This 56-nucleotide RNA sequence belongs to the Rfam family "MDR-NUDIX RNA". The base pairs follow the family's consensus structure, which is taken from published work.
RNA sequence: ACUAUGACCCGAGGGUCCUCUAUACGCAGACGUUUGGACGGCCAAACCAAUAGCGA
Numbered sequence: 001a002c003u004a005u006g007a008c009c010c011g012a013g014g015g016u017c018c019u020c021u022a023u024a025c026g027c028a029g030a031c032g033u034u035u036g037g038a039c040g041g042c043c044a045a046a047c048c049a050a051u052a053g054c055g056a
Stems, first nucleotide, its partner, number of pairs: 006017004025055003032047006
Rfam classes the family as a cis-regulatory element.